[Rfam]
Bacterial RNase P class B: a 369-nucleotide sequence from Loigolactobacillus rennini. NCBI's taxonomy places the organism under Bacteria, Bacillota, Lactobacillales, Loigolactobacillus, Loigolactobacillus rennini. Ribonuclease P (RNase P) is a ubiquitous endoribonuclease, found in archaea, bacteria and eukarya as well as chloroplasts and mitochondria. Its best characterised activity is the generation of mature 5'-ends of tRNAs by cleaving the 5'-leader elements of precursor-tRNAs. Cellular RNase Ps are ribonucleoproteins. RNA from bacterial RNase Ps retains its catalytic activity in the absence of the protein subunit, i.e. it is a ribozyme. Isolated eukaryotic and archaeal RNase P RNA has not been shown to retain its catalytic function, but is still essential for the catalytic activity of the holoenzyme. Although the archaeal and eukaryotic holoenzyme s have a much greater protein content than the bacterial ones, the RNA cores from all the three lineages are homologous -- helices corresponding to P1, P2, P3, P4, and P10/11 are common to all cellular RNase P RNAs. Yet, there is considerable sequence variation, particularly among the eukaryotic RNAs. A search with the family's covariance model found it, with a score of 318 bits.
RNA sequence: AAUCUCGGGUAAUCGCGGUCUGCUAUGCGCAGGCUGAGGAAAGUCCAUGCCCGCACAGGCUGAGAUGCCUGUAGUGUUCGCGCUUAGCCCAAUAAGCUAAGGUACUGCUUUGCAGUAACGGCGAAGGACGCAGCUAAGGAGUGAUCUAUGCUGUUAACCUUCUGAAAAGUGCCACAGUGACGAUCCAGUAUGGAAACAUAUUGUUUGGAACGGGUAAACCCCGCGAGCGAGUAACCCAAACUUUGGUAGGGGCGCUUCAUGUCGGGAAAUGAACAAUGCAUGAAGGCAGAUGAAUAAUCUGUAGAUAGAUGAUUACCCUCAUUGAGUUGUGCCUGAGCAGCUUAAUGAGACAAAACAUGGCUUACAGAG
Number, nucleotide and partner (000 for none) at each position: 001a000002a000003u000004c369005u368006c367007g365008g317009g316010u315011a314012a313013u312014c311015g000016c036017g035018g034019u033020c032021u031022g000023c000024u000025a000026u000027g000028c000029g000030c000031a021032g020033g019034c018035u017036g016037a000038g000039g000040a000041a363042a362043g361044u000045c360046c359047a358048u357049g356050c231051c000052c229053g228054c227055a072056c071057a070058g069059g068060c067061u000062g000063a000064g000065a000066u000067g060068c059069c058070u057071g056072u055073a000074g000075u000076g000077u000078u226079c225080g224081c223082g222083c101084u100085u099086a098087g097088c096089c000090c000091a000092a000093u000094a000095a000096g088097c087098u086099a085100a084101g083102g119103u117104a116105c115106u114107g113108c112109u000110u000111u000112g108113c107114a106115g105116u104117a103118a000119c102120g221121g220122c000123g162124a161125a160126g159127g000128a000129c000130g000131c153132a152133g151134c150135u000136a000137a000138g147139g146140a145141g000142u000143g000144a000145u140146c139147u138148a000149u000150g134151c133152u132153g131154u000155u000156a000157a000158c000159c126160u125161u124162c123163u000164g000165a000166a000167a000168a000169g219170u218171g215172c214173c213174a000175c000176a000177g000178u000179g000180a000181c000182g000183a000184u000185c000186c203187a202188g201189u200190a199191u198192g197193g000194a000195a000196a000197c192198a191199u190200a189201u188202u187203g186204u000205u000206u000207g000208g000209a000210a000211c000212g000213g173214g172215u171216a000217a000218a170219c169220c121221c120222c082223g081224c080225g079226a078227g054228c053229g052230a000231g050232u000233a000234a000235c251236c250237c249238a000239a000240a000241c000242u000243u000244u000245g000246g000247u000248a000249g237250g236251g235252g000253c000254g000255c285256u284257u283258c282259a281260u280261g279262u000263c000264g000265g000266g000267a000268a000269a000270u000271g000272a000273a000274c000275a000276a000277u000278g000279c261280a260281u259282g258283a257284a256285g255286g302287c301288a300289g299290a298291u297292g000293a000294a000295u000296a000297a291298u290299c289300u288301g287302u286303a000304g000305a000306u000307a000308g000309a000310u000311g014312a013313u012314u011315a010316c009317c008318c000319u348320c347321a346322u345323u344324g343325a342326g341327u340328u339329g338330u337331g000332c000333c000334u000335g000336a000337g330338c329339a328340g327341c326342u325343u324344a323345a322346u321347g320348a319349g000350a000351c000352a000353a000354a000355a000356c049357a048358u047359g046360g045361c043362u042363u041364a000365c007366a000367g006368a005369g004